[Rfam]
RNA sequence: GACUGUAUGAAGUAGACUGAAAAGAGUUCUGGACGGGGAUGCAAAUUCCCCCAGGUCCACCACAAGCAUAUUGCGGUGUGUAUUCGAAAGACCGAUCACCUUGGCGUUUCGAUGUUUUCGCAAGUGAUUUUACAAUAUGCUUUUGAUGGGCCUGACAUUGGUUUCGACAGGGCAACAAGUAACAGAGUGGACAGCUCGGCAAAGCAGAAGCCGUAGGGUUGGGGAGACUCGGCCGUAGACGCAAAAACCGUAAAUGCAAACGACGAACAGUUCGCUUUAGCAGCCUAA
Numbered sequence: 001g002a003c004u005g006u007a008u009g010a011a012g013u014a015g016a017c018u019g020a021a022a023a024g025a026g027u028u029c030u031g032g033a034c035g036g037g038g039a040u041g042c043a044a045a046u047u048c049c050c051c052c053a054g055g056u057c058c059a060c061c062a063c064a065a066g067c068a069u070a071u072u073g074c075g076g077u078g079u080g081u082a083u084u085c086g087a088a089a090g091a092c093c094g095a096u097c098a099c100c101u102u103g104g105c106g107u108u109u110c111g112a113u114g115u116u117u118u119c120g121c122a123a124g125u126g127a128u129u130u131u132a133c134a135a136u137a138u139g140c141u142u143u144u145g146a147u148g149g150g151c152c153u154g155a156c157a158u159u160g161g162u163u164u165c166g167a168c169a170g171g172g173c174a175a176c177a178a179g180u181a182a183c184a185g186a187g188u189g190g191a192c193a194g195c196u197c198g199g200c201a202a203a204g205c206a207g208a209a210g211c212c213g214u215a216g217g218g219u220u221g222g223g224g225a226g227a228c229u230c231g232g233c234c235g236u237a238g239a240c241g242c243a244a245a246a247a248c249c250g251u252a253a254a255u256g257c258a259a260a261c262g263a264c265g266a267a268c269a270g271u272u273c274g275c276u277u278u279a280g281c282a283g284c285c286u287a288a
Stems, first nucleotide, its partner, number of pairs: 001196001003194003013186001026173002029170003035051005052154007197213004